[Rfam]
RNA: SAM (S-adenosyl methionine) riboswitch aptamer
RNA sequence: GGUCAUGAGUGCCAGCACACAGCCCCGGCUUGCUGGCCGGCAACCCUCCUCCGCGGUGGGGUGCCCCGGGUGAAGACCUGGCCUGUUCGCACGCAAGGCGACGGGCAAGCGCGAGGU
Numbered sequence: 001g002g003u004c005a006u007g008a009g010u011g012c013c014a015g016c017a018c019a020c021a022g023c024c025c026c027g028g029c030u031u032g033c034u035g036g037c038c039g040g041c042a043a044c045c046c047u048c049c050u051c052c053g054c055g056g057u058g059g060g061g062u063g064c065c066c067c068g069g070g071u072g073a074a075g076a077c078c079u080g081g082c083c084u085g086u087u088c089g090c091a092c093g094c095a096a097g098g099c100g101a102c103g104g105g106c107a108a109g110c111g112c113g114a115g116g117u
Stems, first nucleotide, its partner, number of pairs: 001078004009038001011037006021030002039065003044061003048056002081106005087101004